[Rfam]
Description
Rfam assigns this 132-nucleotide RNA from Mus musculus to the family "Small nucleolar RNA SNORA17". Rfam classes the family as an H/ACA-box small nucleolar RNA. Rfam's curators write: snoRNA ACA 17 belongs to the H/ACA family of snoRNAs and is predicted to guide pseudouridylation of the 28S rRNA at positions U4659 and U4598.
RNA sequence: CUUGCCCUUUAAGGUGCUGUAGAUGUGACUACUGUGUCACAUAUGCGUCCAUGGGGAGCAGAGAGGAGAGGGGUUCUGUCUAUACUCAUCAUUCUGCCCUAAGUACAUCUGAACAACUACUAGCCUAACAUU
Numbered sequence: 001c002u003u004g005c006c007c008u009u010u011a012a013g014g015u016g017c018u019g020u021a022g023a024u025g026u027g028a029c030u031a032c033u034g035u036g037u038c039a040c041a042u043a044u045g046c047g048u049c050c051a052u053g054g055g056g057a058g059c060a061g062a063g064a065g066g067a068g069a070g071g072g073g074u075u076c077u078g079u080c081u082a083u084a085c086u087c088a089u090c091a092u093u094c095u096g097c098c099c100u101a102a103g104u105a106c107a108u109c110u111g112a113a114c115a116a117c118u119a120c121u122a123g124c125c126u127a128a129c130a131u132u
Stems, first nucleotide, its partner, number of pairs: 002061004007055003013049003019046003024041006068129001071126005083115001086112003092105001094103001
NCBI's taxonomy places the organism under Eukaryota, Metazoa, Theria, Boreoeutheria, Mus.
A search with the family's covariance model found it, with a score of 78 bits.
The literature on the family includes a 1997 paper in J Mol Biol by Ofengand and Bakin, "Mapping to nucleotide resolution of pseudouridine residues in large subunit ribosomal RNAs from representative eukaryotes, prokaryotes, archaebacteria, mitochondria and chloroplasts".
Pairs were carried over by alignment from the consensus structure, which was predicted with RNAalifold.